RNA sequence: UGUUCGAAAGGGCAAACCCAUCGAAAGGUGGGGACGCAAAAUCACAGUCUAAGGGUGGCUGAGCCGCCUAUGACCGACGGAUUACCGAA
Numbered sequence: 001u002g003u004u005c006g007a008a009a010g011g012g013c014a015a016a017c018c019c020a021u022c023g024a025a026a027g028g029u030g031g032g033g034a035c036g037c038a039a040a041a042u043c044a045c046a047g048u049c050u051a052a053g054g055g056u057g058g059c060u061g062a063g064c065c066g067c068c069u070a071u072g073a074c075c076g077a078c079g080g081a082u083u084a085c086c087g088a089a
Stems, first nucleotide, its partner, number of pairs: 012037002017032006040083004045079001047074003054068004
Dot-bracket structure: ...........((...((((((....))))))...))..((((.(.(((....((((.......))))...)))....)))))......
Rfam assigns this 89-nucleotide RNA sequence from Candidatus Thiodiazotropha endoloripes to the family "c-di-GMP-I riboswitch aptamer". Lineage of the source: Bacteria > Pseudomonadota > Gammaproteobacteria > Chromatiales > Candidatus Thiodiazotropha. The match comes from Rfam's covariance-model search (68 bits). Pairs were carried over by alignment from the consensus structure, which is taken from published work. Gene Ontology term of the family: cyclic-di-GMP binding.